[Rfam]
Shown here is a 63-nucleotide RNA from Colobus angolensis, a member of the family "U7 small nuclear RNA". Lineage of the source: Eukaryota > Chordata > Dipnotetrapodomorpha > Theria > Colobus angolensis.

Nucleotides: 063
Base pairs, nucleotide, nucleotide: 034060035059037057038056039055041053042051043050044049
Number, partner (000 for none) and nucleotide at each position: 001000u002000a003000g004000u005000g006000u007000u008000a009000c010000a011000g012000c013000u014000c015000u016000u017000u018000u019000a020000g021000a022000a023000u024000u025000u026000g027000u028000c029000u030000a031000g032000c033000a034060g035059g036000c037057c038056u039055u040000a041053u042051g043050g044049u045000u046000u047000u048000c049044a050043c051042u052000a053041g054000g055039a056038a057037g058000u059035c060034c061000c062000c063000a
From the family's description: Animal histone pre-mRNAs are spliced by a different mechanism than nuclear pre-mRNAs and self-splicing introns.
A search with the family's covariance model found it, with a score of 61 bits.
The family has 49 seed sequences and 10,439 matches in Rfam 15.1.
The family's consensus secondary structure was predicted with PFOLD.